A member of the RNA family "Eukaryotic large subunit ribosomal RNA" from Solanum lycopersicum, 482 nucleotides of a longer RNA. Taxonomically the source falls in Solanum subgen. Lycopersicon (Eukaryota, Streptophytina, Mesangiospermae, Gunneridae).
RNA sequence: CCUUCUGAAGUUUCCCUCAGGAUAGCUGGAGCUCGCAUGCGAGUUCUAUCGGGUAAAGCCAAUGAUUAGAGGUUCGGGGGUGUAACGCCCUCGACCUAUUCUCAAACUUUAAAUAGGUAGGAUGGCGCGACUGCUUUGUUGAGCCACGCCACGAAAUCAAGAGCUCCAAGUGGGCCAUUUUUGGUAAGCAGAAUUGGCGAUGUGGGAUGAACCAGAAGCUGGGUUAUGGUGCCAAACUGCUCACUAACCUAGAUCCCACAAAGGGUAUUGGUCGAUUAAGACAGCAGGACGGUGGUCAUGGAAGUCAAAAUCCGCUAAGGAGUGUGUAAUAACUCACCUGCCGAAUCAACUAGCCUCGAAAAUGGAUGGCGCUUAAGCGCGCGAUCUACACCCGGCCGUGGGGCAAAUUCCAGGCCUUGAUGAGUAGGAGGGUGCGGCAGUCGCUGCAAAACCUUGGGCGUGAGCCUGGGCGGAGCGUCCAU
Numbered sequence: 001c002c003u004u005c006u007g008a009a010g011u012u013u014c015c016c017u018c019a020g021g022a023u024a025g026c027u028g029g030a031g032c033u034c035g036c037a038u039g040c041g042a043g044u045u046c047u048a049u050c051g052g053g054u055a056a057a058g059c060c061a062a063u064g065a066u067u068a069g070a071g072g073u074u075c076g077g078g079g080g081u082g083u084a085a086c087g088c089c090c091u092c093g094a095c096c097u098a099u100u101c102u103c104a105a106a107c108u109u110u111a112a113a114u115a116g117g118u119a120g121g122a123u124g125g126c127g128c129g130a131c132u133g134c135u136u137u138g139u140u141g142a143g144c145c146a147c148g149c150c151a152c153g154a155a156a157u158c159a160a161g162a163g164c165u166c167c168a169a170g171u172g173g174g175c176c177a178u179u180u181u182u183g184g185u186a187a188g189c190a191g192a193a194u195u196g197g198c199g200a201u202g203u204g205g206g207a208u209g210a211a212c213c214a215g216a217a218g219c220u221g222g223g224u225u226a227u228g229g230u231g232c233c234a235a236a237c238u239g240c241u242c243a244c245u246a247a248c249c250u251a252g253a254u255c256c257c258a259c260a261a262a263g264g265g266u267a268u269u270g271g272u273c274g275a276u277u278a279a280g281a282c283a284g285c286a287g288g289a290c291g292g293u294g295g296u297c298a299u300g301g302a303a304g305u306c307a308a309a310a311u312c313c314g315c316u317a318a319g320g321a322g323u324g325u326g327u328a329a330u331a332a333c334u335c336a337c338c339u340g341c342c343g344a345a346u347c348a349a350c351u352a353g354c355c356u357c358g359a360a361a362a363u364g365g366a367u368g369g370c371g372c373u374u375a376a377g378c379g380c381g382c383g384a385u386c387u388a389c390a391c392c393c394g395g396c397c398g399u400g401g402g403g404c405a406a407a408u409u410c411c412a413g414g415c416c417u418u419g420a421u422g423a424g425u426a427g428g429a430g431g432g433u434g435c436g437g438c439a440g441u442c443g444c445u446g447c448a449a450a451a452c453c454u455u456g457g458g459c460g461u462g463a464g465c466c467u468g469g470g471c472g473g474a475g476c477g478u479c480c481a482u
Stems, first nucleotide, its partner, number of pairs: 001432006011024001013022003027168007044122007056110001057108002063104003068099001070097003074094006081087001124150004129145001131143002174198004179193005203214003218396005224390001228386003237383001239382001242379001244377001263357003268353005274347003284341005290314003296308001315319001320335001324333002397422003400418005433481001440479001442477003452470001457466003